[Rfam]
RNA sequence: CAUCACAAAAAUUACACAGGUCUGUGUUCAGCGAUCCUGGCCAGUUUGUUUCUACAAGCUGUGAUCGGUUGAUUGCUGGGCAGUUCGACGACAAAGGAGCCACCCUUGCAAUUUCCGAAUUGUUAUGGUGUCAAUUUCCUGUCGACAGAUCUGAGAUCGAUGUACAGCUCUCAACACCCUUUAGCUUUGAGCUCCCUUUUCCUCACGGGAUUGGUGAAUUCAGUUGGAGGAUUGAGUUGCUGUCGGCGUCAUAUUCCCACUCCCUUUACCGAUUAUUUUUGGCCGUCGGCUGAUGAGGUUAGGGAAAAACCAUGACUAGCCAACAUUC
Numbered sequence: 001c002a003u004c005a006c007a008a009a010a011a012u013u014a015c016a017c018a019g020g021u022c023u024g025u026g027u028u029c030a031g032c033g034a035u036c037c038u039g040g041c042c043a044g045u046u047u048g049u050u051u052c053u054a055c056a057a058g059c060u061g062u063g064a065u066c067g068g069u070u071g072a073u074u075g076c077u078g079g080g081c082a083g084u085u086c087g088a089c090g091a092c093a094a095a096g097g098a099g100c101c102a103c104c105c106u107u108g109c110a111a112u113u114u115c116c117g118a119a120u121u122g123u124u125a126u127g128g129u130g131u132c133a134a135u136u137u138c139c140u141g142u143c144g145a146c147a148g149a150u151c152u153g154a155g156a157u158c159g160a161u162g163u164a165c166a167g168c169u170c171u172c173a174a175c176a177c178c179c180u181u182u183a184g185c186u187u188u189g190a191g192c193u194c195c196c197u198u199u200u201c202c203u204c205a206c207g208g209g210a211u212u213g214g215u216g217a218a219u220u221c222a223g224u225u226g227g228a229g230g231a232u233u234g235a236g237u238u239g240c241u242g243u244c245g246g247c248g249u250c251a252u253a254u255u256c257c258c259a260c261u262c263c264c265u266u267u268a269c270c271g272a273u274u275a276u277u278u279u280u281g282g283c284c285g286u287c288g289g290c291u292g293a294u295g296a297g298g299u300u301a302g303g304g305a306a307a308a309a310c311c312a313u314g315a316c317u318a319g320c321c322a323a324c325a326u327u328c
Base pairs, nucleotide, nucleotide: 018152019151020150021149022148023147024146025145026081027080028079029078030077031076033074034073035072036071037068038067039066040065041063042061043060046057047056048055049054089144090143091142092141093140096132097131099129100128101127165239166238170236171235172234173233174232183225184224185223186222189221190220191219193217194216195214196213245321246320247319248316249315250314251313252312261305262304263303264302265301268299269298270297281291282290283289284288
The record is a 328-nucleotide sequence from Talaromyces marneffei, which matches "A. fumigatus sRNA Afu_309" in Rfam. The match comes from Rfam's covariance-model search (209 bits). NCBI's taxonomy places the organism under Eukaryota, Opisthokonta, Dikarya, Eurotiomycetes, Talaromyces marneffei. By type it is a small RNA.